[Rfam]
RNA sequence: UUAUAAAGGAACGUUGACUAUUACGUGUCAUAUUCUGAUUAAACGAUGAUAAUGUAUUGUUGUCAACGUCCAAUCAGAACGUGACACGUGACAGUUAUCAUCU
Numbered sequence: 001u002u003a004u005a006a007a008g009g010a011a012c013g014u015u016g017a018c019u020a021u022u023a024c025g026u027g028u029c030a031u032a033u034u035c036u037g038a039u040u041a042a043a044c045g046a047u048g049a050u051a052a053u054g055u056a057u058u059g060u061u062g063u064c065a066a067c068g069u070c071c072a073a074u075c076a077g078a079a080c081g082u083g084a085c086a087c088g089u090g091a092c093a094g095u096u097a098u099c100a101u102c103u
Stems, first nucleotide, its partner, number of pairs: 021091003025087002029083003033079004038074003
RNA: MIR1520 microRNA precursor family